[Rfam]
RNA sequence: UUGUGCAAAAGGCAAACCGGAUGAAAGUCCGGGACGCAAAGCUUCCGGUCUAAGGGUCAGCAGUACCUAAGAUAGCGGGGCCACCACA
Numbered sequence: 001u002u003g004u005g006c007a008a009a010a011g012g013c014a015a016a017c018c019g020g021a022u023g024a025a026a027g028u029c030c031g032g033g034a035c036g037c038a039a040a041g042c043u044u045c046c047g048g049u050c051u052a053a054g055g056g057u058c059a060g061c062a063g064u065a066c067c068u069a070a071g072a073u074a075g076c077g078g079g080g081c082c083a084c085c086a087c088a
Stems, first nucleotide, its partner, number of pairs: 012037002017032006041081003045078003048073003055067003
RNA: c-di-GMP-I riboswitch aptamer